[Rfam]
RNA sequence: UGUGCUUCGCUAGCGCCAGGACUCGUCUCCCGCGGCGGAGGCGAGUUGACGAGGAUGGGGUGUGUCGAGGGUUCGGCGGAUCUCCCCACGGUUGGCCACGACCGUGAGCGGCCUGGCAAAUCCCGGGAGCGAUCCCGGGGACAAUACAGGCCAGGUGGCCUG
Numbered sequence: 001u002g003u004g005c006u007u008c009g010c011u012a013g014c015g016c017c018a019g020g021a022c023u024c025g026u027c028u029c030c031c032g033c034g035g036c037g038g039a040g041g042c043g044a045g046u047u048g049a050c051g052a053g054g055a056u057g058g059g060g061u062g063u064g065u066c067g068a069g070g071g072u073u074c075g076g077c078g079g080a081u082c083u084c085c086c087c088a089c090g091g092u093u094g095g096c097c098a099c100g101a102c103c104g105u106g107a108g109c110g111g112c113c114u115g116g117c118a119a120a121u122c123c124c125g126g127g128a129g130c131g132a133u134c135c136c137g138g139g140g141a142c143a144a145u146a147c148a149g150g151c152c153a154g155g156u157g158g159c160c161u162g
Base pairs, nucleotide, nucleotide: 020047021046022045023044024043025042026041027040029038056088057087058086059085060084065076066075067074068073089104090103091102092101093100094099110152111151112150113149114148115147122139123138124137125136126135127134128133